[Rfam]
RNA sequence: AAGCGACCAGUCUCAAGUGCCGGAAGGACGGGGUGAAAUCCGGCCGUGUCGGACCCGCGUAGGACGGAGUGCCGACGCCCCCAGGAGUCGCCCGGGCCUGCCCUUAUGU
Number, nucleotide and partner (000 for none) at each position: 001a000002a000003g091004c090005g089006a088007c087008c000009a000010g000011u000012c000013u000014c000015a000016a000017g000018u000019g000020c043021c042022g041023g040024a000025a000026g000027g000028a000029c035030g000031g000032g000033g000034u000035g029036a000037a000038a000039u000040c023041c022042g021043g020044c000045c000046g078047u077048g076049u075050c000051g000052g000053a000054c000055c067056c066057g065058c000059g000060u000061a000062g000063g000064a000065c057066g056067g055068a000069g000070u000071g000072c000073c000074g000075a049076c048077g047078c046079c000080c000081c000082c000083a000084g000085g000086a000087g007088u006089c005090g004091c003092c000093c000094g103095g102096g101097c000098c000099u000100g000101c096102c095103c094104u000105u000106a000107u000108g000109u000
Description:
The record is a 109-nucleotide RNA from Mycobacterium simulans, which matches "Mycobacterium sRNA ncrMT1302" in Rfam. The family's consensus secondary structure was predicted with WAR. For this family Rfam cites "A screen for non-coding RNA in Mycobacterium tuberculosis reveals a cAMP-responsive RNA that is expressed during infection" (Pelly et al., Gene, 2012). The source organism's lineage runs through Bacteria, Bacillati, Actinomycetota, Actinomycetes and Mycobacterium.